[Rfam]
RNA: TPP riboswitch aptamer (THI element)
Organism: Boudabousia liubingyangii
RNA sequence: GGCGACGAACACGGGAGCCCUACCGACUGGGCUGAGAGGAAAGCAGUUUCGCUUUCGACCGUUUGGACCUGAACCGGGUAAUGCCGGCGCAGGAAGGUUUUCUCUUCUCCGUG
Numbered sequence: 001g002g003c004g005a006c007g008a009a010c011a012c013g014g015g016a017g018c019c020c021u022a023c024c025g026a027c028u029g030g031g032c033u034g035a036g037a038g039g040a041a042a043g044c045a046g047u048u049u050c051g052c053u054u055u056c057g058a059c060c061g062u063u064u065g066g067a068c069c070u071g072a073a074c075c076g077g078g079u080a081a082u083g084c085c086g087g088c089g090c091a092g093g094a095a096g097g098u099u100u101u102c103u104c105u106u107c108u109c110c111g112u113g
Stems, first nucleotide, its partner, number of pairs: 007100004011062004017032004039056005068093004074087004